Rfam assigns this 122-nucleotide RNA from Dendrobium catenatum to the family "U11 spliceosomal RNA". By type it is a spliceosomal small nuclear RNA. The source organism's lineage runs through Eukaryota, Embryophyta, Tracheophyta, Dendrobieae and Dendrobium.
RNA sequence: UAAAAGGGUUGGCUAUGUAUGUCACGCACAUCUUUUAAUUGAUGGGUGUUGUAUGGUUAUCAAGACAUAUGGCCGACAUAAUUUAUGGAUAUUAUAGGAUUGACUUGCCCGGCUAACCUUCU
Numbered sequence: 001u002a003a004a005a006g007g008g009u010u011g012g013c014u015a016u017g018u019a020u021g022u023c024a025c026g027c028a029c030a031u032c033u034u035u036u037a038a039u040u041g042a043u044g045g046g047u048g049u050u051g052u053a054u055g056g057u058u059a060u061c062a063a064g065a066c067a068u069a070u071g072g073c074c075g076a077c078a079u080a081a082u083u084u085a086u087g088g089a090u091a092u093u094a095u096a097g098g099a100u101u102g103a104c105u106u107g108c109c110c111g112g113c114u115a116a117c118c119u120u121c122u
Stems, first nucleotide, its partner, number of pairs: 008077005014028001016026003029048005035042002049072007096119003100116003104112001106111001